Overview:
Shown here is a 475-nucleotide part of an RNA from Actinoalloteichus hoggarensis, a member of the family "Bacterial large subunit ribosomal RNA".

RNA sequence: CUCCCCGAAAUGCAUUUAGGUGCAGCGUCACGUGUUUCUCAUCUGAGGUAGAGCACUGGAUGGCUAAUGGGCCCUACAAGGUUACUGACGUCAGCCAAACUCCGAAUGCGGGUGAGUGAGAGCGUGGCAGUGAGACUGCGGGGGAUAAGCUUCGUAGUCGAGAGGGAAACAGCCCAGAACACCAGCUAAGGCCCCUAAGUGUGCGCUAAGUGGGAAAGGAUGUGGGGUCGCCCAGACAACCAGGAGGUUGGCUUAGAAGCAGCCAUCCUUUAAAGAGUGCGUAAUAGCUCACUGGUCAAGUGGUCCUGCGCCGAUAAUGUAGCGGGGCUCAAGCGUACCGCCGAAGCUGUGUCAUUCACAUGUGUGCUCGGCCUGGCUUUCGGGUCAGGUCUAGGUGUGUGGAUGGGUAGGGGAGCGUCGUGCAUCGGGUGAAGCGGCCGUGUGAACGAGUCGUGGACGGUGUGCGAGUGAGAAU
Dot-bracket structure: ((((((....(((((....))))).((((((((..(.((((((((.....(((...(((.((((....(((((......)))).)....)))).)))..)).).....))))))))....)))))))).)...((((((((((......))))))))))....(((......)))...((((.(((...(((......(.((((((...........((..((((((((((.......(((((.(((..(((.........)))..)))(...)(...((......)).).)))))...)))))))))).))....................))))))))))...)))))))(((((((((((...............................)))))))))))....))))))(.((((((((((......((((((((....))).)))))...))))))))))..).....
The organism belongs to Actinoalloteichus, within Bacteria.